[Rfam]
The record is a 75-nucleotide RNA from Desulfamplus magnetovallimortis, which matches "c-di-GMP-I riboswitch aptamer" in Rfam. The family's consensus secondary structure is taken from published work. From the family's description: GEMM was predicted in a large-scale screen for bacterial structured RNA regulatory elements. NCBI's taxonomy places the organism under Bacteria, Thermodesulfobacteriota, Desulfobacteria, Desulfobacterales, Desulfamplus.
Nucleotides: 075
Stems, first nucleotide, its partner, number of pairs: 012037002017032006040069004045065003048060003
Number, partner (000 for none) and nucleotide at each position: 001000c002000a003000a004000g005000a006000a007000a008000a009000g010000c011000g012037c013036c014000a015000a016000a017032a018031c019030u020029g021028c022027u023000g024000c025000g026000a027022a028021g029020u030019a031018g032017u033000g034000a035000c036013g037012g038000a039000a040069a041068g042067c043066c044000a045065c046064g047063g048060a049059u050058c051000u052000c053000c054000a055000g056000a057000a058050g059049a060048u061000a062000g063047c064046c065045g066043g067042g068041u069040u070000g071000c072000c073000u074000u075000g